[Rfam]
RNA: Leucine operon leader
Organism: Pantoea alhagi
RNA sequence: UGGAGCCUGAUUCAAUGAUUCGUUCAUUCCGCCUACUUGGACUACUACUAAACGCAUAUCACUUGCGCGGUAGUCGUGUGGGCGGAAUCAAUCACUGAUUCAGGCUAACAAAACGAAAAAACCCGCGCCAAUGCGCGGGUUUUUUU
Numbered sequence: 001u002g003g004a005g006c007c008u009g010a011u012u013c014a015a016u017g018a019u020u021c022g023u024u025c026a027u028u029c030c031g032c033c034u035a036c037u038u039g040g041a042c043u044a045c046u047a048c049u050a051a052a053c054g055c056a057u058a059u060c061a062c063u064u065g066c067g068c069g070g071u072a073g074u075c076g077u078g079u080g081g082g083c084g085g086a087a088u089c090a091a092u093c094a095c096u097g098a099u100u101c102a103g104g105c106u107a108a109c110a111a112a113a114c115g116a117a118a119a120a121a122c123c124c125g126c127g128c129c130a131a132u133g134c135g136c137g138g139g140u141u142u143u144u145u146u
Base pairs, nucleotide, nucleotide: 004106006104007103008102009101010100012098013097014096016094017093018092029085030084031083032082033081034080035079036078038076045073046072047071048070049069053067054066055065056064118143119142120141121140122139123138124137125136126135127134128133